[Rfam]
The record is a 35-nucleotide RNA sequence, which matches "DUF805b RNA" in Rfam. The base pairs follow the family's consensus structure, which is taken from published work.

RNA sequence: AAGGAGAAGGCCGAAAAUCCGGAAAAGAGUAGGUG
Numbered sequence: 001a002a003g004g005a006g007a008a009g010g011c012c013g014a015a016a017a018u019c020c021g022g023a024a025a026a027g028a029g030u031a032g033g034u035g
Base pairs, nucleotide, nucleotide: 003020004019005018010034011033012032
Dot-bracket structure: ..(((....[[[.....)))...........]]].
Rfam's curators put it in the seed alignment.